A member of the RNA family "Small nucleolar RNA SNORD83" from Echeneis naucrates, 75 nucleotides long.
The base pairs follow the family's consensus structure, which was predicted with PFOLD.
A reference for the family is Jady and Kiss (2000), "Characterisation of the U83 and U84 small nucleolar RNAs: two novel 2'-O-ribose methylation guide RNAs that lack complementarities to ribosomal RNAs", Nucleic Acids Res.
[Rfam]
RNA sequence: GCCACAUGAUGAGAGUAGCUUCAUUAGCUCUUGGGCUGUGAUGACCAAUCUAUCUAUCACCCUUCUCUGAUGGCU
Numbered sequence: 001g002c003c004a005c006a007u008g009a010u011g012a013g014a015g016u017a018g019c020u021u022c023a024u025u026a027g028c029u030c031u032u033g034g035g036c037u038g039u040g041a042u043g044a045c046c047a048a049u050c051u052a053u054c055u056a057u058c059a060c061c062c063u064u065c066u067c068u069g070a071u072g073g074c075u
Stems, first nucleotide, its partner, number of pairs: 001074004027036003